The family of this 126-nucleotide sequence from Cebus imitator is "U8 small nucleolar RNA".
The match comes from Rfam's covariance-model search (58 bits).
Its family is annotated with nucleolus and RNA processing in the Gene Ontology.
For this family Rfam cites "The sequence of the 5' end of the U8 small nucleolar RNA is critical for 5.8S and 28S rRNA maturation" (Peculis, Mol Cell Biol, 1997).
Rfam classes the family as a C/D-box small nucleolar RNA.
The source organism's lineage runs through Eukaryota, Eumetazoa, Bilateria, Simiiformes and Cebus.
RNA sequence: UUGUCAGGUAGGAUAACGCUUACCUCUGUUUGGAGGGCAGUAUUAGGACAACAUGAUUGGAGUCGCAUGAUACGAUUAAUGUCUGCUGCAUAAUCAGGACUCACAUCACCCUGAUUGCUCCUAUCU
Dot-bracket structure: .................(((..(((((....)))))..)))...........................((.(((.....))).).)....((((((((...........)))))))).........